[Rfam]
This 130-nucleotide RNA sequence from Brenneria rubrifaciens belongs to the Rfam family "radC RNA". The source organism's lineage runs through Bacteria, Pseudomonadati, Gammaproteobacteria, Enterobacterales and Brenneria. The family has 148 seed sequences and 500 matches in Rfam 15.1.
RNA sequence: AUGGUGCCGUUGACGCUGAUGUUAUCAGCCCACCCAGGCAGCCAGGAUCUUCAGGGCUGCGGCGUGCUUUCACACGCAGAUCCGGUCCGCUCCGCAUCACAUGGCGGACAACGUGCCCCGGCACGGAUGC
Numbered sequence: 001a002u003g004g005u006g007c008c009g010u011u012g013a014c015g016c017u018g019a020u021g022u023u024a025u026c027a028g029c030c031c032a033c034c035c036a037g038g039c040a041g042c043c044a045g046g047a048u049c050u051u052c053a054g055g056g057c058u059g060c061g062g063c064g065u066g067c068u069u070u071c072a073c074a075c076g077c078a079g080a081u082c083c084g085g086u087c088c089g090c091u092c093c094g095c096a097u098c099a100c101a102u103g104g105c106g107g108a109c110a111a112c113g114u115g116c117c118c119c120g121g122c123a124c125g126g127a128u129g130c
Stems, first nucleotide, its partner, number of pairs: 011032002015029006038060006047081003062077005104130003113124004